Shown here is an 88-nucleotide sequence from Roseisalinus antarcticus, a member of the family "Glycine riboswitch aptamer".
Taxonomically the source falls in Roseisalinus (Bacteria, Alphaproteobacteria, Rhodobacterales, Roseobacteraceae).
Pairs were carried over by alignment from the consensus structure.
Gene Ontology term of the family: glycine biosynthetic process.
RNA sequence: AGGAUCGCGCCGGGAGAGUGCGGGUUUCCCGCCGCCGAAGGAGCAACCGCCCCGGUAAACUCUCAGGCACCAGGGACCGGACGAGCCG
Numbered sequence: 001a002g003g004a005u006c007g008c009g010c011c012g013g014g015a016g017a018g019u020g021c022g023g024g025u026u027u028c029c030c031g032c033c034g035c036c037g038a039a040g041g042a043g044c045a046a047c048c049g050c051c052c053c054g055g056u057a058a059a060c061u062c063u064c065a066g067g068c069a070c071c072a073g074g075g076a077c078c079g080g081a082c083g084a085g086c087c088g
Stems, first nucleotide, its partner, number of pairs: 010080004020032004034068003037064002041062003047055002